Description: The record is a 127-nucleotide RNA from Orycteropus afer, which matches "Small nucleolar RNA SNORA77" in Rfam. About the family: ACA63 (SNORA77) is a member of the H/ACA class of snoRNAs that guide the sites of modification of uridines to pseudouridines. This snoRNA was identified by computational screening and its expression in mouse experimentally verified by Northern blot and primer extension analysis. ACA63 is proposed to guide the pseudouridylation of 18S rRNA U814. On this family, see Schattner et al., RNA 2006: "A computational screen for mammalian pseudouridylation guide H/ACA RNAs". The organism belongs to Orycteropus afer, within Eukaryota. Rfam 15.1 lists 843 matches to the family in 607 species. Rfam links the family to the GO terms nucleolus and RNA processing.
RNA sequence: GCAGACUCACUCUGCGUCUGACCACAGUCCCAGGCCAGGUGCUUUUUCUGUCUGCCAGAGAAACUGUCCGGGCCACUGUGAGCACCUUGGUGGGUUCGAGGUGACGCAGCUGCCCGGGGACAUGUGU
Numbered sequence: 001g002c003a004g005a006c007u008c009a010c011u012c013u014g015c016g017u018c019u020g021a022c023c024a025c026a027g028u029c030c031c032a033g034g035c036c037a038g039g040u041g042c043u044u045u046u047u048c049u050g051u052c053u054g055c056c057a058g059a060g061a062a063a064c065u066g067u068c069c070g071g072g073c074c075a076c077u078g079u080g081a082g083c084a085c086c087u088u089g090g091u092g093g094g095u096u097c098g099a100g101g102u103g104a105c106g107c108a109g110c111u112g113c114c115c116g117g118g119g120a121c122a123u124g125u126g127u
Stems, first nucleotide, its partner, number of pairs: 001055006014042007022033001067118007076109005083103005